[Rfam]
RNA sequence: UAAAAAGGAACUCAGGUAACGAGCGCCGCGUCCUGCGGCAAUACCUGAGUGACCGGCUUCUGCCGG
Numbered sequence: 001u002a003a004a005a006a007g008g009a010a011c012u013c014a015g016g017u018a019a020c021g022a023g024c025g026c027c028g029c030g031u032c033c034u035g036c037g038g039c040a041a042u043a044c045c046u047g048a049g050u051g052a053c054c055g056g057c058u059u060c061u062g063c064c065g066g
Base pairs, nucleotide, nucleotide: 011049012048013047014046015045016044017043025039026038027037028036029035053066054065055064056063057062

A member of the RNA family "Bacillaceae-1 RNA" from Domibacillus mangrovi, 66 nucleotides long. A search with the family's covariance model found it, with a score of 58 bits.